This 156-nucleotide part of an RNA from Phocoena sinus belongs to the Rfam family "Eukaryotic small subunit ribosomal RNA". For this family Rfam cites "Crystal structure of the ribosome at 5.5 A resolution" (Yusupov et al., Science, 2001). A search with the family's covariance model found it, with a score of 1528 bits. Its Rfam clan is "SSU clan".
[Rfam]
RNA sequence: CCGCCCGUCGCUACUACCGAUUGGAUGGUUUAGUGAGGCCCUCCGGCCAUACUGGGGUCAGCCCUGGUGGAGAGCUGAGAAGACUGUCGAACUUGACUAUCUAGAGGAAGUAAAAGUAGCAAGGUUUCCAUAGGUGAACCUGUGGAAGAAUCAUUA
Numbered sequence: 001c002c003g004c005c006c007g008u009c010g011c012u013a014c015u016a017c018c019g020a021u022u023g024g025a026u027g028g029u030u031u032a033g034u035g036a037g038g039c040c041c042u043c044c045g046g047c048c049a050u051a052c053u054g055g056g057g058u059c060a061g062c063c064c065u066g067g068u069g070g071a072g073a074g075c076u077g078a079g080a081a082g083a084c085u086g087u088c089g090a091a092c093u094u095g096a097c098u099a100u101c102u103a104g105a106g107g108a109a110g111u112a113a114a115a116g117u118a119g120c121a122a123g124g125u126u127u128c129c130a131u132a133g134g135u136g137a138a139c140c141u142g143u144g145g146a147a148g149a150a151u152c153a154u155u156a
Stems, first nucleotide, its partner, number of pairs: 001123001003120002009116001012112004017107002021103001023102008032093003037088003042083002046075002050071001052069001055065003125148010